[Rfam]
RNA sequence: GGUGGACGGUGUGCACGGUACACGUCUGUGUUAUGUGUUGUUGCCCAACUGUGUUUUGCAGUCUGAGCAGCAGCGCUCACUCCACACCUGCAGCCAUAGAACAACAGGAGGUCAUAGUACUGGUCCUUGACGUCUUUAUAGACAUCUCACCAUUGGCCAGCCUCCAAAUUCUCCUACAUGC
Dot-bracket structure: ............(((..............((...(((((((.((.((..(((.....)))...)).)).)))))).).))........)))...............(((((........((((((..((..((((....)))).......))..)))))).........))))).......
Numbered sequence: 001g002g003u004g005g006a007c008g009g010u011g012u013g014c015a016c017g018g019u020a021c022a023c024g025u026c027u028g029u030g031u032u033a034u035g036u037g038u039u040g041u042u043g044c045c046c047a048a049c050u051g052u053g054u055u056u057u058g059c060a061g062u063c064u065g066a067g068c069a070g071c072a073g074c075g076c077u078c079a080c081u082c083c084a085c086a087c088c089u090g091c092a093g094c095c096a097u098a099g100a101a102c103a104a105c106a107g108g109a110g111g112u113c114a115u116a117g118u119a120c121u122g123g124u125c126c127u128u129g130a131c132g133u134c135u136u137u138a139u140a141g142a143c144a145u146c147u148c149a150c151c152a153u154u155g156g157c158c159a160g161c162c163u164c165c166a167a168a169u170u171c172u173c174c175u176a177c178a179u180g181c
Stems, first nucleotide, its partner, number of pairs: 013091003030080002035077001036075006043068002046065002050060003107174005120160006128152002132143004